[Rfam]
Rfam assigns this 299-nucleotide RNA from Methanobacterium sp. A39 to the family "Archaeal RNase P". Rfam's curators write: Ribonuclease P (RNase P) is a ubiquitous endoribonuclease, found in archaea, bacteria and eukarya as well as chloroplasts and mitochondria. Taxonomically the source falls in Methanobacterium (Archaea, Methanobacteriati, Methanobacteria, Methanobacteriales). For this family Rfam cites "Ribonuclease P: unity and diversity in a tRNA processing ribozyme" (Frank and Pace, Annu Rev Biochem, 1998). It scores 222 bits against the family's covariance model. Rfam links the family to the GO terms tRNA processing, ribonuclease P activity and multimeric ribonuclease P complex.

RNA sequence: GUAAGCCGAAGAGCAGCUACCGGUUUCUUGCAACUUGCAAGUUAAACUGAGGAAACUCCAUCCAUCAUACAGAACCAUGGUGUCGCGAGGCACAUGCUGAGAAGCAUGACUCUGGAGCAGAAACGAGACGUCUUUUGAUAGAUGAACAUGAUGCCUAAGCUGAUGAUAUCAAAAGGAACGGUGAAACGGCCAUUUCGUGGGAUGUAAGGGCAAAUACUGUCGAUGAAUCCUGUAUGAGGCAGAGGUAGCUCGCAUAGAUGAAUGCUGCUAAAACAGGAGGUGGGUUACUCUCGGCAUAC
Number, nucleotide and partner (000 for none) at each position: 001g299002u298003a297004a000005g295006c294007c293008g292009a291010a289011g288012a269013g268014c267015a266016g265017c264018u000019a000020c000021c049022g048023g047024u046025u045026u000027c000028u000029u000030g000031c000032a000033a000034c000035u000036u000037g000038c000039a000040a000041g000042u000043u000044a000045a025046a024047c023048u022049g021050a000051g000052g000053a000054a286055a285056c284057u000058c283059c282060a281061u280062c279063c204064a203065u202066c201067a000068u234069a233070c232071a231072g230073a000074a000075c200076c199077a198078u197079g196080g093081u092082g091083u090084c089085g000086c000087g000088a000089g084090g083091c082092a081093c080094a107095u106096g105097c104098u103099g000100a000101g000102a000103a098104g097105c096106a095107u094108g195109a194110c000111u000112c000113u192114g191115g190116a000117g000118c000119a000120g000121a000122a000123a000124c000125g000126a000127g000128a000129c180130g179131u178132c175133u174134u173135u172136u171137g170138a169139u168140a000141g000142a000143u000144g000145a000146a000147c000148a000149u000150g000151a000152u000153g160154c159155c000156u000157a000158a000159g154160c153161u000162g000163a000164u000165g000166a000167u000168a139169u138170c137171a136172a135173a134174a133175g132176g000177a000178a131179c130180g129181g000182u000183g000184a000185a000186a000187c000188g000189g000190c115191c114192a113193u000194u109195u108196c079197g078198u077199g076200g075201g066202a065203u064204g063205u000206a000207a000208g251209g250210g249211c248212a000213a000214a000215u000216a000217c242218u241219g240220u239221c238222g000223a000224u000225g000226a000227a000228u000229c000230c072231u071232g070233u069234a068235u000236g000237a000238g221239g220240c219241a218242g217243a000244g000245g000246u000247a000248g211249c210250u209251c208252g000253c000254a000255u000256a000257g000258a000259u000260g000261a000262a000263u000264g017265c016266u015267g014268c013269u012270a000271a000272a000273a000274c000275a000276g000277g000278a000279g062280g061281u060282g059283g058284g056285u055286u054287a000288c011289u010290c000291u009292c008293g007294g006295c005296a000297u003298a002299c001